Shown here is a 109-nucleotide sequence from Corynebacterium kalinowskii, a member of the family "mraW RNA". The family has 45 seed sequences and 851 matches in Rfam 15.1. A search with the family's covariance model found it, with a score of 59 bits. Lineage of the source: Bacteria > Bacillati > Mycobacteriales > Corynebacteriaceae > Corynebacterium.

RNA sequence: CAAAACGGUACGUGUAAGGACUCUGCUCGGGGGCGUGAACGCUCUGGUGUACUUCCCCGACAUCAGAUCGAUCCCUCCGAGUGGGGCCCUAUACGUAUCAGGACAACAU
Numbered sequence: 001c002a003a004a005a006c007g008g009u010a011c012g013u014g015u016a017a018g019g020a021c022u023c024u025g026c027u028c029g030g031g032g033g034c035g036u037g038a039a040c041g042c043u044c045u046g047g048u049g050u051a052c053u054u055c056c057c058c059g060a061c062a063u064c065a066g067a068u069c070g071a072u073c074c075c076u077c078c079g080a081g082u083g084g085g086g087c088c089c090u091a092u093a094c095g096u097a098u099c100a101g102g103a104c105a106a107c108a109u
Stems, first nucleotide, its partner, number of pairs: 010096007018089002021086013038072001040070002043067008